[Rfam]
RNA sequence: UUUCGCGGCGUUGGGGAGUAGCCUGCUUUCUUUUUUGAAAGAGUCCGUAUCAACAUAAUUGGCCACAUGCCAUGGUGCGGAUGCCUCUCGGUUGGCGAGACCAUCGAAAUUUCACGUUUUUUGUUCGGGUGCGUGGAUGUUUCGUGGUUGUCAUACCCGAGAGAGA
Numbered sequence: 001u002u003u004c005g006c007g008g009c010g011u012u013g014g015g016g017a018g019u020a021g022c023c024u025g026c027u028u029u030c031u032u033u034u035u036u037g038a039a040a041g042a043g044u045c046c047g048u049a050u051c052a053a054c055a056u057a058a059u060u061g062g063c064c065a066c067a068u069g070c071c072a073u074g075g076u077g078c079g080g081a082u083g084c085c086u087c088u089c090g091g092u093u094g095g096c097g098a099g100a101c102c103a104u105c106g107a108a109a110u111u112u113c114a115c116g117u118u119u120u121u122u123g124u125u126c127g128g129g130u131g132c133g134u135g136g137a138u139g140u141u142u143c144g145u146g147g148u149u150g151u152c153a154u155a156c157c158c159g160a161g162a163g164a165g166a
Base pairs, nucleotide, nucleotide: 026041027040028039043082044081045080046079047078048077049076050075051074052073060072061071062070063069086166087165088164089163